[Rfam]
RNA sequence: UGGGCGGUCAACAAGCGCGGGCCUGGCGGAGCGGGGCGGCGCGCGGAGAUCGCGAGGCGACCGGGAGCGGCUGGGCCCCCGGCGGCGCGCCCCUCGGCCGGGCGGGGAGCCGCGCCAGUCGGAGUCCCAGGCCGAGCGCGGCCUGCCUCGCUCGCAGCGUCCAUCUGUCCGGAGUGCAACCAGCGGGCAUGACCGAUCCACCAGGGGCGCCGCCACCGCCGGCGCUCGCAGGCCGCGGGUGAAGAAGGUCCGUCCCCGCUCAACCCGGAGCGAGAAAGUGACCCAGGUCGAGGAGGUGCCCCGGGGCGAGGAGGUGCCCCGGGGCAAGGAGGAGACCCGGGCGGAGGAGGCGGUCCUGACAGAAGAGGUG
Numbered sequence: 001u002g003g004g005c006g007g008u009c010a011a012c013a014a015g016c017g018c019g020g021g022c023c024u025g026g027c028g029g030a031g032c033g034g035g036g037c038g039g040c041g042c043g044c045g046g047a048g049a050u051c052g053c054g055a056g057g058c059g060a061c062c063g064g065g066a067g068c069g070g071c072u073g074g075g076c077c078c079c080c081g082g083c084g085g086c087g088c089g090c091c092c093c094u095c096g097g098c099c100g101g102g103c104g105g106g107g108a109g110c111c112g113c114g115c116c117a118g119u120c121g122g123a124g125u126c127c128c129a130g131g132c133c134g135a136g137c138g139c140g141g142c143c144u145g146c147c148u149c150g151c152u153c154g155c156a157g158c159g160u161c162c163a164u165c166u167g168u169c170c171g172g173a174g175u176g177c178a179a180c181c182a183g184c185g186g187g188c189a190u191g192a193c194c195g196a197u198c199c200a201c202c203a204g205g206g207g208c209g210c211c212g213c214c215a216c217c218g219c220c221g222g223c224g225c226u227c228g229c230a231g232g233c234c235g236c237g238g239g240u241g242a243a244g245a246a247g248g249u250c251c252g253u254c255c256c257c258g259c260u261c262a263a264c265c266c267g268g269a270g271c272g273a274g275a276a277a278g279u280g281a282c283c284c285a286g287g288u289c290g291a292g293g294a295g296g297u298g299c300c301c302c303g304g305g306g307c308g309a310g311g312a313g314g315u316g317c318c319c320c321g322g323g324g325c326a327a328g329g330a331g332g333a334g335a336c337c338c339g340g341g342c343g344g345a346g347g348a349g350g351c352g353g354u355c356c357u358g359a360c361a362g363a364a365g366a367g368g369u370g
Base pairs, nucleotide, nucleotide: 021103022102023101024100025099026098027097038093039092041090042089043053044052045051046050061082062081063080064079065078067076068075144352145351146350147349148348149347166189167188168187169186170185171184205227206226207225208224209223210222211221212220257272258271259270260269261268
RNA: Bag-1 internal ribosome entry site (IRES)